This 88-nucleotide sequence from Oryza punctata belongs to the Rfam family "mir-399 microRNA precursor family". From the family's description: mir-399 was identified in both Arabidopsis thaliana and Oryza sativa computationally and was later experimentally verified. mir-399 is thought to target mRNAs coding for a phosphatase transporter. A search with the family's covariance model found it, with a score of 74 bits. Gene Ontology terms of the family: miRNA-mediated post-transcriptional gene silencing and RISC complex.
RNA sequence: AGCUGCAUUGCUGGGCAAGUUGUCCUUUGGCAGAUGUUGCAGUUCAUCAUCGACUACUGCCAAAGGAAAUUUGCCCCGGAAUUCAUCU
Numbered sequence: 001a002g003c004u005g006c007a008u009u010g011c012u013g014g015g016c017a018a019g020u021u022g023u024c025c026u027u028u029g030g031c032a033g034a035u036g037u038u039g040c041a042g043u044u045c046a047u048c049a050u051c052g053a054c055u056a057c058u059g060c061c062a063a064a065g066g067a068a069a070u071u072u073g074c075c076c077c078g079g080a081a082u083u084c085a086u087c088u
Stems, first nucleotide, its partner, number of pairs: 005084001007082003011078001013076007023067003028062006036054004